Description:
A member of the RNA family "mir-29 microRNA precursor family" from Sarcoptes scabiei, 124 nucleotides long. NCBI's taxonomy places the organism under Eukaryota, Arthropoda, Chelicerata, Psoroptidia, Sarcoptes.
RNA sequence: GAUCGAUUGAAUUCCCUUGGUGAUUAGAUGUUGUUAAUCAUCAUCAUCAUCAUCUCAAUUCUCAAGUUCGGUGAUGAUUAAUACGAUUCGAUACGAAUCUAGCACCAUAAGAAUUCAAUAGAUG
Numbered sequence: 001g002a003u004c005g006a007u008u009g010a011a012u013u014c015c016c017u018u019g020g021u022g023a024u025u026a027g028a029u030g031u032u033g034u035u036a037a038u039c040a041u042c043a044u045c046a047u048c049a050u051c052a053u054c055u056c057a058a059u060u061c062u063c064a065a066g067u068u069c070g071g072u073g074a075u076g077a078u079u080a081a082u083a084c085g086a087u088u089c090g091a092u093a094c095g096a097a098u099c100u101a102g103c104a105c106c107a108u109a110a111g112a113a114u115u116c117a118a119u120a121g122a123u124g
Stems, first nucleotide, its partner, number of pairs: 002123003005119001007118008018107005025101004
The base pairs follow the family's consensus structure, which was predicted with PFOLD.